[Rfam]
RNA sequence: UGCCGUGAUGAAUUCCUCAGGAAUCUCGUUCGGCUGAACGCUGCUGUUGAGGACUCGGACUCUGAUCCCU
Dot-bracket structure: .......................(((((..((((........)))).)))))..................
RNA: Small nucleolar RNA SNORD30
Organism: Anser cygnoides